[Rfam]
RNA sequence: AUUAACUCAAUACGAAAUCACACACGUAUCGACACAUGCAUCGGGGUGCUGCAACAGUAAUGUUGUGGUCGAUAGGAUGGGAUACGUGGAGGUUUAAC
Number, nucleotide and partner (000 for none) at each position: 001a000002u000003u000004a000005a000006c000007u000008c000009a000010a000011u000012a000013c000014g000015a000016a000017a000018u000019c000020a000021c000022a000023c088024a087025c086026g085027u084028a083029u082030c081031g000032a000033c000034a000035c079036a078037u077038g000039c075040a073041u072042c071043g070044g000045g000046g000047u000048g069049c068050u067051g066052c065053a000054a000055c000056a000057g000058u000059a000060a000061u000062g000063u000064u000065g052066u051067g050068g049069u048070c043071g042072a041073u040074a000075g039076g000077a037078u036079g035080g000081g030082a029083u028084a027085c026086g025087u024088g023089g000090a000091g000092g000093u000094u000095u000096a000097a000098c000

The record is a 98-nucleotide RNA sequence from Shewanella sp. SNU WT4, which matches "t44 RNA" in Rfam. A search with the family's covariance model found it, with a score of 78 bits. Rfam's curators write: This family consists of a number of bacterial RNA genes of between 135 and 170 bases in length. The t44 gene has been identified in several species of enteric bacteria but homologs have also been identified in Pseudomonas and Coxiella species.